[Rfam]
RNA sequence: UCCAGAGUAGCUCAAUGGUGGAGCACCCGGCUGUUAACCGGUAGGUUGUGGGUUCGAGUCCCACCUCUGGAG
Number, nucleotide and partner (000 for none) at each position: 001u071002c070003c069004a068005g067006a066007g065008u000009a000010g024011c023012u022013c021014a000015a000016u000017g000018g000019u000020g000021g013022a012023g011024c010025a000026c000027c041028c040029g039030g038031c000032u000033g000034u000035u000036a000037a000038c030039c029040g028041g027042u000043a000044g000045g000046u000047u000048g064049u063050g062051g061052g060053u000054u000055c000056g000057a000058g000059u000060c052061c051062c050063a049064c048065c007066u006067c005068u004069g003070g002071a001072g000
RNA: tRNA
Organism: Caminicella sporogenes